[Rfam]
The record is a 108-nucleotide RNA sequence from Caldisericum exile, which matches "TPP riboswitch aptamer (THI element)" in Rfam.
RNA sequence: UAUUGACCUCGGGGGAGCCCUUUGUGGCUGAGAGGGAUGUACUGUUACAUCCGACCCCUCGAACCUGAUCCGGGUAAUGCCGGCGUAGGGAGAUGGUGCAAGGCAAAA
Numbered sequence: 001u002a003u004u005g006a007c008c009u010c011g012g013g014g015g016a017g018c019c020c021u022u023u024g025u026g027g028c029u030g031a032g033a034g035g036g037a038u039g040u041a042c043u044g045u046u047a048c049a050u051c052c053g054a055c056c057c058c059u060c061g062a063a064c065c066u067g068a069u070c071c072g073g074g075u076a077a078u079g080c081c082g083g084c085g086u087a088g089g090g091a092g093a094u095g096g097u098g099c100a101a102g103g104c105a106a107a108a
Stems, first nucleotide, its partner, number of pairs: 006097003011058004017028003035052007064089004070083004